[Rfam]
RNA sequence: AGCUUUGCGCAGUGGCAGUAUCGUAGCCAAUGAGGUUUAUCCGAGGCACGAUUAUUGCUAAUUGAAAAAGUAUCCCUGACCACAAUCCAGACUGAGUGACUCAGACUCAGGUUUGAAGGUUUUCAGGGACCAGUGAAGUGG
Numbered sequence: 001a002g003c004u005u006u007g008c009g010c011a012g013u014g015g016c017a018g019u020a021u022c023g024u025a026g027c028c029a030a031u032g033a034g035g036u037u038u039a040u041c042c043g044a045g046g047c048a049c050g051a052u053u054a055u056u057g058c059u060a061a062u063u064g065a066a067a068a069a070g071u072a073u074c075c076c077u078g079a080c081c082a083c084a085a086u087c088c089a090g091a092c093u094g095a096g097u098g099a100c101u102c103a104g105a106c107u108c109a110g111g112u113u114u115g116a117a118g119g120u121u122u123u124c125a126g127g128g129a130c131c132a133g134u135g136a137a138g139u140g141g
Stems, first nucleotide, its partner, number of pairs: 020052005026047003034042002086117001088115001089113002092110006130141003
A member of the RNA family "U4 spliceosomal RNA" from Odobenus rosmarus, 141 nucleotides long. For this family Rfam cites "Structure of a pre-catalytic spliceosome" (Plaschka et al., Nature, 2017). Pairs were carried over by alignment from the consensus structure, which is taken from published work. The source organism's lineage runs through Eukaryota, Opisthokonta, Deuterostomia, Teleostomi and Odobenus rosmarus. The match comes from Rfam's covariance-model search (82 bits).